[Rfam]
RNA sequence: UCAGUCCCUCUCAGGCGCCGGAGCAGACGCCGUGUUUACACGGGCGGCCGCUCCGGCAUCUGAGAGGACAACAGGAAUGAGCAUGCAGGGCCGAAGGCCCGGAAUGCGAAUUCCUGGCAGCGUCGCGAAAGCUUCGAAGAAGCGAAGAGACGCUGGGACGGA
Dot-bracket structure: ((.((((((((..((.((((((((.(.(((((((....))))).)).).)))))))).))..)))).....(((((((..((((...((((.....))))...))))..)))))))...(((((.(....((((.....))))...).)))))..)))).))
Numbered sequence: 001u002c003a004g005u006c007c008c009u010c011u012c013a014g015g016c017g018c019c020g021g022a023g024c025a026g027a028c029g030c031c032g033u034g035u036u037u038a039c040a041c042g043g044g045c046g047g048c049c050g051c052u053c054c055g056g057c058a059u060c061u062g063a064g065a066g067g068a069c070a071a072c073a074g075g076a077a078u079g080a081g082c083a084u085g086c087a088g089g090g091c092c093g094a095a096g097g098c099c100c101g102g103a104a105u106g107c108g109a110a111u112u113c114c115u116g117g118c119a120g121c122g123u124c125g126c127g128a129a130a131g132c133u134u135c136g137a138a139g140a141a142g143c144g145a146a147g148a149g150a151c152g153c154u155g156g157g158a159c160g161g162a
Stems, first nucleotide, its partner, number of pairs: 001162002004159004008066004014060002017057008026048001028046002030043005072116007081107004088100004120153005126147001131143004